[Rfam]
RNA sequence: ACUAUUCAAAUAGUAUCAACUCGUAUAAUCGCAGGGAUAUGGCCUGCAAGUUUCUACCAGCUUACCUUAAAUAAGCUGACUAUGGGCGGCAAUGAAAUGAUC
Number, nucleotide and partner (000 for none) at each position: 001a000002c000003u000004a000005u000006u000007c000008a000009a000010a000011u000012a000013g000014u000015a000016u000017c000018a000019a000020c086021u085022c084023g083024u082025a081026u000027a000028a000029u049030c000031g047032c046033a045034g044035g043036g000037a000038u000039a000040u000041g000042g000043c035044c034045u033046g032047c031048a000049a029050g000051u000052u000053u000054c000055u000056a000057c000058c078059a077060g076061c075062u074063u073064a072065c000066c000067u000068u000069a000070a000071a000072u064073a063074a062075g061076c060077u059078g058079a000080c000081u025082a024083u023084g022085g021086g020087c000088g000089g000090c000091a000092a000093u000094g000095a000096a000097a000098u000099g000100a000101u000102c000
Rfam assigns this 102-nucleotide RNA from Psychrobacillus soli to the family "Purine riboswitch aptamer". Rfam describes the family as follows. Riboswitches are metabolite binding domains within certain messenger RNAs that serve as precision sensors for their corresponding targets. It scores 82 bits against the family's covariance model. Its family is annotated with purine nucleobase biosynthetic process in the Gene Ontology.